[Rfam]
RNA sequence: AAUGCAUGACUCUUCAGUCUCAGGACUUGCAAAAUUAUUGGAAUGCCGUCCUAAGGUUAUGGAGUUCUGUGUU
Numbered sequence: 001a002a003u004g005c006a007u008g009a010c011u012c013u014u015c016a017g018u019c020u021c022a023g024g025a026c027u028u029g030c031a032a033a034a035u036u037a038u039u040g041g042a043a044u045g046c047c048g049u050c051c052u053a054a055g056g057u058u059a060u061g062g063a064g065u066u067c068u069g070u071g072u073u
Base pairs, nucleotide, nucleotide: 002072003071004070005069006068010064011063012062016058017057018056019055020054022052023051024050025049026048029046030045031044
RNA: mir-676 microRNA precursor family